[Rfam]
RNA sequence: ACGUUCGGAUAAUCGCUGUUUUCUUUUGAAAGCAGAGGAAAGUCCAUGCUCGCACGGUGCUGUGAUGCCCGUAGUGAUCGUGCCUGGUCAAACAAUAAGCCAGGGCAUUCCGGUUUUCCGGUUUGACGGCAGGUGAAUGACCUAAGUCUUCGGAUAUGGUCUUAUAACCUUGAAGGUGCCACAGUGACGAAGUUCCGGCAGAAAUGCUCGGAAGUGGAACGAGGUAAACCCCACGAGCGAGAAACUCAAACUUAUGGUAGGGGCACUUUUCCCGAGGAAUCAAGAACAAGGGACGAGGCGCAAAUGUAUUUUUGCGCAGAUAGAUGGUUAUCUCUUUACUAUUACCCUGUACGUAGUAAAGAACAGAACAUGGCUUACAGAG
Numbered sequence: 001a002c003g004u005u006c007g008g009a010u011a012a013u014c015g016c017u018g019u020u021u022u023c024u025u026u027u028g029a030a031a032g033c034a035g036a037g038g039a040a041a042g043u044c045c046a047u048g049c050u051c052g053c054a055c056g057g058u059g060c061u062g063u064g065a066u067g068c069c070c071g072u073a074g075u076g077a078u079c080g081u082g083c084c085u086g087g088u089c090a091a092a093c094a095a096u097a098a099g100c101c102a103g104g105g106c107a108u109u110c111c112g113g114u115u116u117u118c119c120g121g122u123u124u125g126a127c128g129g130c131a132g133g134u135g136a137a138u139g140a141c142c143u144a145a146g147u148c149u150u151c152g153g154a155u156a157u158g159g160u161c162u163u164a165u166a167a168c169c170u171u172g173a174a175g176g177u178g179c180c181a182c183a184g185u186g187a188c189g190a191a192g193u194u195c196c197g198g199c200a201g202a203a204a205u206g207c208u209c210g211g212a213a214g215u216g217g218a219a220c221g222a223g224g225u226a227a228a229c230c231c232c233a234c235g236a237g238c239g240a241g242a243a244a245c246u247c248a249a250a251c252u253u254a255u256g257g258u259a260g261g262g263g264c265a266c267u268u269u270u271c272c273c274g275a276g277g278a279a280u281c282a283a284g285a286a287c288a289a290g291g292g293a294c295g296a297g298g299c300g301c302a303a304a305u306g307u308a309u310u311u312u313u314g315c316g317c318a319g320a321u322a323g324a325u326g327g328u329u330a331u332c333u334c335u336u337u338a339c340u341a342u343u344a345c346c347c348u349g350u351a352c353g354u355a356g357u358a359a360a361g362a363a364c365a366g367a368a369c370a371u372g373g374c375u376u377a378c379a380g381a382g
Base pairs, nucleotide, nucleotide: 004382005381006380007378008332009331010330011329012328013327014326016035017034018033019032020031021030040376041375042374044373045372046371047370048369049241050240051239052238053237054072055071056070057069059068060067078236079235080234081233082232083104084103085102086101087100088099105127106125107124110121111120112119113118128231129230131170132169133168134167139161140160141159142158146155147154148153176229177228178225179224180223193213194212195211196210197209198207199206200205245262246261247260266297267296268295270293271292272291298317299316300315301314302313303312334361335360336359337358338357339356340355341354342353
The family of this 382-nucleotide RNA from Listeria monocytogenes is "Bacterial RNase P class B". About the family: Ribonuclease P (RNase P) is a ubiquitous endoribonuclease, found in archaea, bacteria and eukarya as well as chloroplasts and mitochondria. Its best characterised activity is the generation of mature 5'-ends of tRNAs by cleaving the 5'-leader elements of precursor-tRNAs.